[Rfam]
Nucleotides: 075
Base pairs, nucleotide, nucleotide: 001074002073003072004071
Number, partner (000 for none) and nucleotide at each position: 001074g002073u003072c004071a005000g006000a007000u008000g009000a010000u011000u012000u013000g014000a015000a016000u017000u018000g019000a020000u021000a022000u023000g024000c025000u026000c027000a028000u029000g030000c031000u032000u033000u034000g035000u036000g037000a038000g039000g040000u041000a042000u043000a044000u045000c046000a047000g048000u049000c050000a051000a052000u053000u054000g055000c056000a057000u058000g059000u060000u061000a062000g063000a064000g065000u066000u067000c068000u069000g070000a071004u072003g073002g074001c075000a

Record summary
This 75-nucleotide sequence from Otolemur garnettii belongs to the Rfam family "Small nucleolar RNA SNORD28". Lineage of the source: Eukaryota > Metazoa > Lorisiformes > Galagidae > Otolemur. For this family Rfam cites "A small nucleolar RNA requirement for site-specific ribose methylation of rRNA in Xenopus" (Tycowski et al., Proc Natl Acad Sci U S A, 1996). The family's consensus secondary structure was predicted with PFOLD. The sequence is in the family's curated seed alignment.